[Rfam]
RNA sequence: CCGGUUCCGGUUCACGCCCCCAUCGGCAGGCAGGCCAGGGGCGACCCGGCGACC
Numbered sequence: 001c002c003g004g005u006u007c008c009g010g011u012u013c014a015c016g017c018c019c020c021c022a023u024c025g026g027c028a029g030g031c032a033g034g035c036c037a038g039g040g041g042c043g044a045c046c047c048g049g050c051g052a053c054c
Base pairs, nucleotide, nucleotide: 003054004053005052007049008048009047010046015043016042017041018040019039020038
The family of this 54-nucleotide sequence from Verrucosispora sioxanthis is "L31-Actinobacteria ribosomal protein leader".
The match comes from Rfam's covariance-model search (54 bits).
Rfam classes the family as a cis-regulatory leader.
NCBI's taxonomy places the organism under Bacteria, Bacillati, Actinomycetota, Micromonosporaceae, Micromonospora.
The family's consensus secondary structure is taken from published work.